[Rfam]
RNA sequence: GGUCAUGAGACCCAGCGACAAGCCCUGGCUUGCUGGGCGGCAACCCUCACGAACGUGGCGGGGUGCUCCAGGUGACGACCCGACGAGGUGGCUCAUCUCGUAAGCACGCUCC
Numbered sequence: 001g002g003u004c005a006u007g008a009g010a011c012c013c014a015g016c017g018a019c020a021a022g023c024c025c026u027g028g029c030u031u032g033c034u035g036g037g038c039g040g041c042a043a044c045c046c047u048c049a050c051g052a053a054c055g056u057g058g059c060g061g062g063g064u065g066c067u068c069c070a071g072g073u074g075a076c077g078a079c080c081c082g083a084c085g086a087g088g089u090g091g092c093u094c095a096u097c098u099c100g101u102a103a104g105c106a107c108g109c110u111c112c
Stems, first nucleotide, its partner, number of pairs: 001080004009038001011037006021030002039067003044063003048058001050057001083101008